[Rfam]
RNA sequence: GGAGGCUGCAACCCAUGGAAGCUGUACGCAUGGGGUAGCAGACUAGUGGUUAGAGGAGACCCCUCCCGAAAC
Numbered sequence: 001g002g003a004g005g006c007u008g009c010a011a012c013c014c015a016u017g018g019a020a021g022c023u024g025u026a027c028g029c030a031u032g033g034g035g036u037a038g039c040a041g042a043c044u045a046g047u048g049g050u051u052a053g054a055g056g057a058g059a060c061c062c063c064u065c066c067c068g069a070a071a072c
Base pairs, nucleotide, nucleotide: 001066002065003064004063005062006041007040012034013033014032015031016030017029048061049060050059051058